Rfam assigns this 90-nucleotide RNA from Cathartes aura to the family "Small nucleolar RNA U83B".
It scores 42 bits against the family's covariance model.
For this family Rfam cites "The intron-containing L3 ribosomal protein gene (RPL3): sequence analysis and identification of U43 and of two novel intronic small nucleolar RNAs" (Duga et al., Biochim Biophys Acta, 2000).
U83B belongs to the C/D family of snoRNAs.
Rfam links the family to the GO terms RNA processing and nucleolus.
RNA sequence: GUCGUUCAGUGAUGAAGUGUGGAACAAGCACUGAGCGGUAUCUGACACGCGUGGGGAGUGGCUCUACCCUGUGUUUCUUCCGAGAGCGGC
Numbered sequence: 001g002u003c004g005u006u007c008a009g010u011g012a013u014g015a016a017g018u019g020u021g022g023a024a025c026a027a028g029c030a031c032u033g034a035g036c037g038g039u040a041u042c043u044g045a046c047a048c049g050c051g052u053g054g055g056g057a058g059u060g061g062c063u064c065u066a067c068c069c070u071g072u073g074u075u076u077c078u079u080c081c082g083a084g085a086g087c088g089g090c
Stems, first nucleotide, its partner, number of pairs: 001090005